[Rfam]
RNA sequence: UUUUUGGCAUUAACAAUCGCUUAUUUAUGCUCGUAAUUUGGUCGGGCGUCUCUACUUGGCACCGUAAAUGCCAACCAAUAAGCAAGGAGUUUAGGUCU
Numbered sequence: 001u002u003u004u005u006g007g008c009a010u011u012a013a014c015a016a017u018c019g020c021u022u023a024u025u026u027a028u029g030c031u032c033g034u035a036a037u038u039u040g041g042u043c044g045g046g047c048g049u050c051u052c053u054a055c056u057u058g059g060c061a062c063c064g065u066a067a068a069u070g071c072c073a074a075c076c077a078a079u080a081a082g083c084a085a086g087g088a089g090u091u092u093a094g095g096u097c098u
Stems, first nucleotide, its partner, number of pairs: 019083007029047005056074006